[Rfam]
Nucleotides: 096
Stems, first nucleotide, its partner, number of pairs: 009027007037051003041047002053070004060082006
Number, partner (000 for none) and nucleotide at each position: 001000u002000c003000u004000g005000g006000u007000u008000u009027c010026u011025u012024g013023u014022u015021u016000c017000c018000u019000a020000a021015a022014a023013a024012c025011a026010a027009g028000u029000g030000g031000u032000g033000c034000g035000g036000a037051u038050g039049g040000a041047g042046g043000a044000a045000a046042c047041u048000c049039c050038c051037g052000c053070c054069c055068u056067g057000u058000u059000u060082c061081u062080u063079g064078c065077u066000u067056c068055a069054g070053g071000u072000u073000a074000a075000a076000g077065a078064g079063c080062a081061a082060g083000u084000g085000g086000c087000g088000u089000g090000c091000a092000u093000g094000a095000a096000a
Annotation: wcaG RNA: a 96-nucleotide RNA sequence. Rfam classes the family as a cis-regulatory element. The sequence is in the family's curated seed alignment. Pairs were carried over by alignment from the consensus structure, which is taken from published work.